[Rfam]
RNA: mir-15 microRNA precursor family
RNA sequence: CCAGGGUGCGCUCUAGCAGCACAUCAUGUUUUGCAGAUUUUGUGCUGAAUCCCUCCAAAUCAUCAUGUGCUGCCACCGUGAGCCCUGG
Numbered sequence: 001c002c003a004g005g006g007u008g009c010g011c012u013c014u015a016g017c018a019g020c021a022c023a024u025c026a027u028g029u030u031u032u033g034c035a036g037a038u039u040u041u042g043u044g045c046u047g048a049a050u051c052c053c054u055c056c057a058a059a060u061c062a063u064c065a066u067g068u069g070c071u072g073c074c075a076c077c078g079u080g081a082g083c084c085c086u087g088g
Stems, first nucleotide, its partner, number of pairs: 001088006014075001016073009026063003030059004035054002